[Rfam]
Nucleotides: 212
Stems, first nucleotide, its partner, number of pairs: 001042001003040001006036002009034002011031001016029005050065003077211001079209002096200010109163003121151002124148004128143005164187005170181003
Number, partner (000 for none) and nucleotide at each position: 001042a002000c003040u004000a005000c006036u007035g008000u009034a010033c011031u012000u013000g014000a015000a016029c017028a018027g019026g020025a021000u022000u023000u024000g025020u026019u027018c028017u029016g030000u031011a032000c033010g034009u035007c036006g037000u038000a039000c040003a041000c042001u043000c044000u045000u046000c047000u048000g049000u050065a051064u052063c053000u054000a055000c056000g057000a058000a059000u060000a061000c062000a063052g064051a065050u066000g067000a068000c069000u070000u071000g072000u073000c074000c075000a076000a077211c078000c079209u080208g081000g082000a083000u084000g085000a086000u087000g088000a089000g090000u091000g092000g093000a094000a095000a096200c097199u098198u099197c100196c101195a102194c103193u104192a105191c106000u107000g108000a109163g110162c111161g112000c113000g114000a115000a116000u117000g118000u119000u120000a121151g122150g123000a124148g125147g126146g127145u128143g129142g130141g131140g132139g133000c134000u135000c136000u137000u138000g139132u140131c141130u142129u143128c144000u145127g146126c147125c148124u149000a150122c151121c152000a153000u154000c155000g156000a157000u158000g159000a160000a161111c162110g163109c164187a165186c166185c167184c168183c169000g170181u171180g172179g173000c174000c175000u176000u177000g178000g179172c180171u181170g182000a183168g184167g185166g186165g187164u188000a189000a190000u191105g192104u193103g194102g195101u196100g197099g198098g199097a200096g201000c202000g203000u204000g205000u206000g207000a208080c209079g210000c211077g212000c